Nucleotides: 132
Stems, first nucleotide, its partner, number of pairs: 002059006013048004019039001021037001022035003072125004079118003084114002087107003092102004
Number, partner (000 for none) and nucleotide at each position: 001000g002059g003058g004057g005056u006055g007054u008000a009000c010000u011000c012000a013048g014047a015046g016045u017000c018000a019039g020000u021037g022035g023034c024033c025000u026000a027000a028000a029000g030000a031000a032000u033024g034023g035022c036000u037021u038000c039019u040000c041000a042000g043000c044000c045016a046015u047014u048013u049000a050000u051000a052000a053000c054007a055006c056005a057004c058003c059002c060000a061000a062000u063000a064000g065000a066000a067000a068000u069000c070000u071000a072125g073124g074123g075122u076000c077000c078000u079118u080117g081116u082000g083000a084114c085113a086000a087107g088106g089105g090000g091000c092102a093101c094100a095099a096000a097000a098000c099095u100094u101093g102092u103000c104000a105089c106088u107087u108000u109000c110000g111000u112000u113085u114084g115000a116081g117080c118079a119000a120000a121000u122075g123074c124073c125072u126000u127000a128000u129000a130000c131000a132000g
Record summary:
The record is a 132-nucleotide sequence from Octodon degus, which matches "Small nucleolar RNA SNORA11" in Rfam. About the family: U107 (SNORA11) is a member of the H/ACA class of snoRNAs that guide the sites of modification of uridines to pseudouridines. This snoRNA was identified by RT-PCR from blood cells and its expression confirmed by Northern blot analysis. There is no predicted target for this guide snRNA. Rfam classes the family as an H/ACA-box small nucleolar RNA. Gene Ontology terms of the family: nucleolus and RNA processing. The base pairs follow the family's consensus structure, which was predicted with RNAalifold. A reference for the family is Gu et al. (2005), "A novel experimental approach for systematic identification of box H/ACA snoRNAs from eukaryotes", Nucleic Acids Res.